[Rfam]
RNA: Lysine riboswitch aptamer
Organism: Alkalibacter rhizosphaerae
RNA sequence: UGCUUUGAUAGAGGCGCAGCGUUUAAGAGUAUUAUCCAGAACGAAUUCAGGAUCGAAGGAUCGGAUUAGAAAGGAAACGUUGCCGAAGUGAAACGAUUCCUGAAAGUCGGUUUGCUGGUUGCCCGGUUAAGAGCCUUGCAACUGUCAUCAUGAAUUGUGAUGAAGCGCUAUCUGAAAG
Numbered sequence: 001u002g003c004u005u006u007g008a009u010a011g012a013g014g015c016g017c018a019g020c021g022u023u024u025a026a027g028a029g030u031a032u033u034a035u036c037c038a039g040a041a042c043g044a045a046u047u048c049a050g051g052a053u054c055g056a057a058g059g060a061u062c063g064g065a066u067u068a069g070a071a072a073g074g075a076a077a078c079g080u081u082g083c084c085g086a087a088g089u090g091a092a093a094c095g096a097u098u099c100c101u102g103a104a105a106g107u108c109g110g111u112u113u114g115c116u117g118g119u120u121g122c123c124c125g126g127u128u129a130a131g132a133g134c135c136u137u138g139c140a141a142c143u144g145u146c147a148u149c150a151u152g153a154a155u156u157g158u159g160a161u162g163a164a165g166c167g168c169u170a171u172c173u174g175a176a177a178g
Base pairs, nucleotide, nucleotide: 007172008171009170010169011168016083017082018081019080020079021078022077023076024075032068034066035065036064037063039061087116088115089114090113091112092111094109095108096107097106098105117143118142119141120140121139122138125135126134127133145163146162147161148160149159150158151157